[Rfam]
Shown here is a 140-nucleotide RNA sequence from Gossypium lobatum, a member of the family "MIR396 microRNA precursor family". Rfam links the family to the GO terms miRNA-mediated post-transcriptional gene silencing and RISC complex.

RNA sequence: CUGUGUAUUCUUCCACAGCUUUCUUGAACUGCAACUUCGUCUUACACCUUUCCUCGUUAUUUUGUGUUGCUUACAUAGGCGGUAUAUGGGUAUGUAUGUAUGUCGUUGCGGUUCAAUAAAGCUGUGGGAAGAUACGGACA
Number, nucleotide and partner (000 for none) at each position: 001c000002u000003g000004u136005g135006u134007a133008u000009u000010c000011u000012u000013c127014c126015a125016c000017a123018g122019c121020u120021u119022u118023c000024u116025u115026g114027a113028a000029c111030u110031g109032c108033a107034a106035c105036u000037u000038c000039g000040u000041c000042u000043u000044a000045c000046a000047c000048c000049u000050u000051u000052c000053c000054u000055c000056g000057u000058u000059a000060u000061u000062u000063u000064g000065u000066g000067u000068u000069g000070c000071u000072u000073a000074c000075a000076u000077a000078g000079g000080c000081g000082g000083u000084a000085u000086a000087u000088g000089g000090g000091u000092a000093u000094g000095u000096a000097u000098g000099u000100a000101u000102g000103u000104c000105g035106u034107u033108g032109c031110g030111g029112u000113u027114c026115a025116a024117u000118a022119a021120a020121g019122c018123u017124g000125u015126g014127g013128g000129a000130a000131g000132a000133u007134a006135c005136g004137g000138a000139c000140a000
Source information
On this family, see Jones-Rhoades and Bartel, Mol Cell 2004: "Computational identification of plant microRNAs and their targets, including a stress-induced miRNA". The match comes from Rfam's covariance-model search (84 bits).